The record is a 76-nucleotide RNA sequence from Alligator mississippiensis, which matches "Mammalian CPEB3 ribozyme" in Rfam.
The match comes from Rfam's covariance-model search (56 bits).
The mammalian CPEB3 ribozyme is a self cleaving RNA located in the second intron of the CPEB3 gene which belongs to a family of genes regulating messenger RNA polyadenylation.
[Rfam]
RNA sequence: AGUUGCAAGCUGAAGGCUAUAGCAGAAGCGUUCACAGCACAGCCUGCCAGAUUCCAAUGAGUCUGCAAAUUCUGCU
Dot-bracket structure: ..............[[[[..((((((((.(.......).)]]]]...(((((((....)))))))....)))))))
Numbered sequence: 001a002g003u004u005g006c007a008a009g010c011u012g013a014a015g016g017c018u019a020u021a022g023c024a025g026a027a028g029c030g031u032u033c034a035c036a037g038c039a040c041a042g043c044c045u046g047c048c049a050g051a052u053u054c055c056a057a058u059g060a061g062u063c064u065g066c067a068a069a070u071u072c073u074g075c076u
Stems, first nucleotide, its partner, number of pairs: 015044004021076007028040001030038001048065007